[Rfam]
RNA sequence: UCAUGAACUAUGUAUCACACGCAUCACUUAGAUGUGAUUUAGAAAGUCACAUAGUGG
Numbered sequence: 001u002c003a004u005g006a007a008c009u010a011u012g013u014a015u016c017a018c019a020c021g022c023a024u025c026a027c028u029u030a031g032a033u034g035u036g037a038u039u040u041a042g043a044a045a046g047u048c049a050c051a052u053a054g055u056g057g
Stems, first nucleotide, its partner, number of pairs: 020036001022034004